Shown here is a 572-nucleotide part of an RNA from Hydrogenobacter thermophilus, a member of the family "Bacterial small subunit ribosomal RNA".
The sequence is in the family's curated seed alignment.

RNA sequence: UUCUUGAAGAGUUUGAUCCUGGCUCAGCGCGAACGCUGGCGGCGUGCCUAACACAUGCAAGUCGUGCGGGGUGGCUCUGCCACCCAGCGGCAAACGGGUGAGUAACACGUGAGUAACCUGCCCUCAGGAAGGGGAUAACCCUCCGAAAGGGGGGCUAAUACCCUAUAAAGCCAGGGGUCACAAAGGCUACCUGGCCAAAGGGGGCCUCUGCUCUGCAUGCUCCCGCCUGAGGAGGGGCUCGCGGCCCAUCAGGUAGUUGGUGGGGUAACGGCCUACCAAGCCUAUGACGGGUAGCCGGCCUGAGAGGGUGGCCGGCCACAGUGGGACUGAGACACGGCCCACACCCCUACGGGGGGCAGCAGUGGGGAAUCGUGGGCAAUGGGCGAAAGCCUGACCCCGCGACGCCGCGUGGAGGAAGAAGCCCUUCGGGGUGUAAACUCCUGUCAGGGGGGAAGAUGCUCACAGAGGCGAAUAGUCUCUGUGGGUGACUGUACCCCCAGAGGAAGGGACGGCUAACUACGUGCCAGCAGCCGCGGUAAUACGUAGGUCCCGAGCGUUGCGCGAAUUUACUG
Numbered sequence: 001u002u003c004u005u006g007a008a009g010a011g012u013u014u015g016a017u018c019c020u021g022g023c024u025c026a027g028c029g030c031g032a033a034c035g036c037u038g039g040c041g042g043c044g045u046g047c048c049u050a051a052c053a054c055a056u057g058c059a060a061g062u063c064g065u066g067c068g069g070g071g072u073g074g075c076u077c078u079g080c081c082a083c084c085c086a087g088c089g090g091c092a093a094a095c096g097g098g099u100g101a102g103u104a105a106c107a108c109g110u111g112a113g114u115a116a117c118c119u120g121c122c123c124u125c126a127g128g129a130a131g132g133g134g135a136u137a138a139c140c141c142u143c144c145g146a147a148a149g150g151g152g153g154g155c156u157a158a159u160a161c162c163c164u165a166u167a168a169a170g171c172c173a174g175g176g177g178u179c180a181c182a183a184a185g186g187c188u189a190c191c192u193g194g195c196c197a198a199a200g201g202g203g204g205c206c207u208c209u210g211c212u213c214u215g216c217a218u219g220c221u222c223c224c225g226c227c228u229g230a231g232g233a234g235g236g237g238c239u240c241g242c243g244g245c246c247c248a249u250c251a252g253g254u255a256g257u258u259g260g261u262g263g264g265g266u267a268a269c270g271g272c273c274u275a276c277c278a279a280g281c282c283u284a285u286g287a288c289g290g291g292u293a294g295c296c297g298g299c300c301u302g303a304g305a306g307g308g309u310g311g312c313c314g315g316c317c318a319c320a321g322u323g324g325g326a327c328u329g330a331g332a333c334a335c336g337g338c339c340c341a342c343a344c345c346c347c348u349a350c351g352g353g354g355g356g357c358a359g360c361a362g363u364g365g366g367g368a369a370u371c372g373u374g375g376g377c378a379a380u381g382g383g384c385g386a387a388a389g390c391c392u393g394a395c396c397c398c399g400c401g402a403c404g405c406c407g408c409g410u411g412g413a414g415g416a417a418g419a420a421g422c423c424c425u426u427c428g429g430g431g432u433g434u435a436a437a438c439u440c441c442u443g444u445c446a447g448g449g450g451g452g453a454a455g456a457u458g459c460u461c462a463c464a465g466a467g468g469c470g471a472a473u474a475g476u477c478u479c480u481g482u483g484g485g486u487g488a489c490u491g492u493a494c495c496c497c498c499a500g501a502g503g504a505a506g507g508g509a510c511g512g513c514u515a516a517c518u519a520c521g522u523g524c525c526a527g528c529a530g531c532c533g534c535g536g537u538a539a540u541a542c543g544u545a546g547g548u549c550c551c552g553a554g555c556g557u558u559g560c561g562c563g564a565a566u567u568u569a570c571u572g
Stems, first nucleotide, its partner, number of pairs: 009025005027562004032558006039408006045401002047366001052364003056361003061091003066088002069085007098319003108243007117236002122232007130164004139154006170195006177188001179186001200224006245291003252282003257279008294316004298309004321342005344355004372398001374397003380393005411441004421432004445503001447498005455489001461483007506551005517546005527534002